Small nucleolar RNA snoR14: an 84-nucleotide RNA sequence from Phtheirospermum japonicum. Its Rfam clan is "SNORD110 clan".

RNA sequence: GCGAUGUGAUGAAGAAAUUCAUGGUCUGUCAAUCCACUGAUUAGAUCAUGAUGUCAACAGUGAGUCCCGACAGGUUCUGAUCGC
Number, nucleotide and partner (000 for none) at each position: 001g084002c083003g082004a081005u000006g000007u000008g000009a000010u000011g000012a000013a000014g000015a000016a000017a000018u000019u000020c000021a000022u000023g000024g000025u000026c000027u000028g000029u000030c000031a000032a000033u000034c000035c000036a000037c000038u000039g000040a000041u000042u000043a000044g000045a000046u000047c000048a000049u000050g000051a000052u000053g000054u000055c000056a000057a000058c000059a000060g000061u000062g000063a000064g000065u000066c000067c000068c000069g000070a000071c000072a000073g000074g000075u000076u000077c000078u000079g000080a000081u004082c003083g002084c001
On this family, see Brown et al., RNA 2001: "Multiple snoRNA gene clusters from Arabidopsis".
It is annotated as a C/D-box small nucleolar RNA.